[Rfam]
RNA sequence: UAUAAAAUACGCUCCUUUGUGUGUUUGAAAUAGGCAUAGAGAAAGUCAUUUUGCCGUGAAUUUUCUCUAUGCUUUUAUUAUAUCA
Number, nucleotide and partner (000 for none) at each position: 001u000002a000003u000004a000005a026006a025007a024008u023009a022010c021011g020012c019013u000014c000015c000016u000017u000018u000019g012020u011021g010022u009023g008024u007025u006026u005027g000028a000029a000030a000031u000032a074033g073034g072035c071036a070037u069038a068039g067040a066041g065042a064043a063044a062045g000046u000047c000048a000049u000050u000051u000052u000053g000054c000055c000056g000057u000058g000059a000060a000061u000062u044063u043064u042065c041066u040067c039068u038069a037070u036071g035072c034073u033074u032075u000076u000077a000078u000079u000080a000081u000082a000083u000084c000085a000
The family of this 85-nucleotide RNA sequence from Lactococcus lactis is "ctRNA". Rfam's curators write: Rolling circle replication plasmids contain a number of mechanisms to maintain a low copy number. One of these methods is to transcribe a small RNA called ctRNA (for counter-transcribed RNA) than is transcribed on the opposite strand to RepB the replication initiation protein. ctRNA binds to the mRNA of repB and causes translational inhibition. The source organism's lineage runs through Bacteria, Bacillati, Bacillota, Lactobacillales and Lactococcus lactis subsp. lactis. The family's RNA type in Rfam is antisense RNA. The literature on the family includes a 1998 paper in FEMS Microbiol Lett by Duan et al., "Involvement of antisense RNA in replication control of the lactococcal plasmid pND324".